[Rfam]
Nucleotides: 046
Base pairs, nucleotide, nucleotide: 006021007020008019009018010017011016
Number, partner (000 for none) and nucleotide at each position: 001000c002000c003000a004000a005000a006021g007020g008019c009018u010017c011016u012000u013000u014000u015000c016011a017010g018009a019008g020007c021006c022000a023000a024000c025000c026000a027000c028000u029000u030000u031000g032000u033000c034000c035000g036000u037000g038000a039000a040000a041000a042000g043000g044000g045000c046000u